Source information: SAM riboswitch aptamer (S box leader): a 102-nucleotide sequence from Alkaliphilus serpentinus. The base pairs follow the family's consensus structure, which is taken from published work. The organism belongs to Alkaliphilus, within Bacteria. From the family's description: The SAM riboswitch is found upstream of a number of genes which code for proteins involved in methionine or cysteine biosynthesis in Gram-positive bacteria.
[Rfam]
RNA sequence: ACCUUAUCAAGAGCGGUGGAGGGAAUGGGCCCUAUGAUACCCGGCAACCAUAUUCAGUAUGGUGCUAAUUCCUACAGAAUUAAUGAUUCUGGCAGAUGAGGU
Numbered sequence: 001a002c003c004u005u006a007u008c009a010a011g012a013g014c015g016g017u018g019g020a021g022g023g024a025a026u027g028g029g030c031c032c033u034a035u036g037a038u039a040c041c042c043g044g045c046a047a048c049c050a051u052a053u054u055c056a057g058u059a060u061g062g063u064g065c066u067a068a069u070u071c072c073u074a075c076a077g078a079a080u081u082a083a084u085g086a087u088u089c090u091g092g093c094a095g096a097u098g099a100g101g102u
Stems, first nucleotide, its partner, number of pairs: 001102008013042001015041003021032003026074004043066004048062002052058002070094001075091006